[Rfam]
Shown here is a 121-nucleotide RNA from Subdoligranulum sp. CAG:314, a member of the family "FMN riboswitch aptamer (RFN element)". A search with the family's covariance model found it, with a score of 104 bits.

RNA sequence: AAAGUUCUUUGGGGCAAGGUGAAAUUCCUUACCGAUGGUGACAGUCCAUGAACGCUUUUCAAAGCGCCGAGCGGGUGGAACUCCCGCACCGACGGUAAAGUCCGGAUGGGAAAAGGCUUUU
Numbered sequence: 001a002a003a004g005u006u007c008u009u010u011g012g013g014g015c016a017a018g019g020u021g022a023a024a025u026u027c028c029u030u031a032c033c034g035a036u037g038g039u040g041a042c043a044g045u046c047c048a049u050g051a052a053c054g055c056u057u058u059u060c061a062a063a064g065c066g067c068c069g070a071g072c073g074g075g076u077g078g079a080a081c082u083c084c085c086g087c088a089c090c091g092a093c094g095g096u097a098a099a100g101u102c103c104g105g106a107u108g109g110g111a112a113a114a115g116g117c118u119u120u121u
Base pairs, nucleotide, nucleotide: 003119004118006116007115008114009113010112017029018028019027031101032100033091034090035049036048037047038046044089045088053066054065071087072086073085074084075083093104094103095102